[Rfam]
RNA sequence: GGGGCUGAUUUAGGUUUCGACUGAAUGUCUUUGUGUUUGCAGUGCAUGUCGAGGGGAGAUAGGCCUCGUAAAAAAAUCUCAAAAAAUAAUUGCAAAAAAUAAAUAUAAUGAACCUGUUGCAUUAGCAGCUUAAUUGGGUUAAUAACCUAAAGGUUCCCUCUUAAUUUUUUUGUUACUCUUAACAAGAAAAUCAUUAUCUCAUAAGAGGUCUAUAAAUAAGAGCGCUCAUUAUAAAGUGCCUAACUCUAUAAUGAUAAGAAUAAAAAUUAGAGCUAAUUGAUUAAUUGACAUGAUCUUAAGUCAUUUUUCAAUAAAAUAUUAAAGAUCUAAACAUGUAGUAUCUGGAAAAUAUAAGAAUUCUGGACGCGGGUUCGAAUCCCGCCAGCUCCAUUU
Numbered sequence: 001g002g003g004g005c006u007g008a009u010u011u012a013g014g015u016u017u018c019g020a021c022u023g024a025a026u027g028u029c030u031u032u033g034u035g036u037u038u039g040c041a042g043u044g045c046a047u048g049u050c051g052a053g054g055g056g057a058g059a060u061a062g063g064c065c066u067c068g069u070a071a072a073a074a075a076a077u078c079u080c081a082a083a084a085a086a087u088a089a090u091u092g093c094a095a096a097a098a099a100u101a102a103a104u105a106u107a108a109u110g111a112a113c114c115u116g117u118u119g120c121a122u123u124a125g126c127a128g129c130u131u132a133a134u135u136g137g138g139u140u141a142a143u144a145a146c147c148u149a150a151a152g153g154u155u156c157c158c159u160c161u162u163a164a165u166u167u168u169u170u171u172g173u174u175a176c177u178c179u180u181a182a183c184a185a186g187a188a189a190a191u192c193a194u195u196a197u198c199u200c201a202u203a204a205g206a207g208g209u210c211u212a213u214a215a216a217u218a219a220g221a222g223c224g225c226u227c228a229u230u231a232u233a234a235a236g237u238g239c240c241u242a243a244c245u246c247u248a249u250a251a252u253g254a255u256a257a258g259a260a261u262a263a264a265a266a267u268u269a270g271a272g273c274u275a276a277u278u279g280a281u282u283a284a285u286u287g288a289c290a291u292g293a294u295c296u297u298a299a300g301u302c303a304u305u306u307u308u309c310a311a312u313a314a315a316a317u318a319u320u321a322a323a324g325a326u327c328u329a330a331a332c333a334u335g336u337a338g339u340a341u342c343u344g345g346a347a348a349a350u351a352u353a354a355g356a357a358u359u360c361u362g363g364a365c366g367c368g369g370g371u372u373c374g375a376a377u378c379c380c381g382c383c384a385g386c387u388c389c390a391u392u393u
Stems, first nucleotide, its partner, number of pairs: 001389007021362001023360004028355001030353001036348003042341002045335005050068005056080005121143006157208006165190008176222003180219001226254006238273002240270002276312005283306002287302003292327004297322001299320001366382005
RNA: transfer-messenger RNA